Rfam assigns this 80-nucleotide RNA sequence from Alligator mississippiensis to the family "Mammalian CPEB3 ribozyme". The mammalian CPEB3 ribozyme is a self cleaving RNA located in the second intron of the CPEB3 gene which belongs to a family of genes regulating messenger RNA polyadenylation. A search with the family's covariance model found it, with a score of 51 bits.
[Rfam]
RNA sequence: AGAGGUCAAGAGUGUGAAGCCAUAGCAGAAGUGCUCACAGUGUGGCCAUGUCAGAUUCCAAUGAAUCUGUGAUUUCUGCU
Numbered sequence: 001a002g003a004g005g006u007c008a009a010g011a012g013u014g015u016g017a018a019g020c021c022a023u024a025g026c027a028g029a030a031g032u033g034c035u036c037a038c039a040g041u042g043u044g045g046c047c048a049u050g051u052c053a054g055a056u057u058c059c060a061a062u063g064a065a066u067c068u069g070u071g072a073u074u075u076c077u078g079c080u
Stems, first nucleotide, its partner, number of pairs: 013048002019046003024080007031043003052069007